[Rfam]
RNA: Flavo-1 RNA
RNA sequence: GUUGCGUUAGGGAUUGUAGUGGAAAUCCUUUUUUGUUUUCUAGAAAGCUUGUUAGUUAACUAACCUUUUGAAAACAAAAAAGAUUGCAACGUAAAGCCCGACCGCAG
Number, nucleotide and partner (000 for none) at each position: 001g000002u000003u000004g000005c000006g000007u000008u000009a000010g099011g098012g097013a000014u095015u094016g000017u000018a000019g090020u089021g000022g000023a000024a085025a084026u083027c082028c000029u000030u080031u079032u078033u077034u076035g075036u074037u073038u072039u071040c070041u000042a000043g000044a000045a000046a000047g000048c000049u000050u000051g000052u000053u000054a000055g000056u000057u000058a000059a000060c000061u000062a000063a000064c000065c000066u000067u000068u000069u000070g040071a039072a038073a037074a036075c035076a034077a033078a032079a031080a030081a000082g027083a026084u025085u024086g000087c000088a000089a020090c019091g000092u000093a000094a015095a014096g000097c012098c011099c010100g000101a000102c000103c000104g000105c000106a000107g000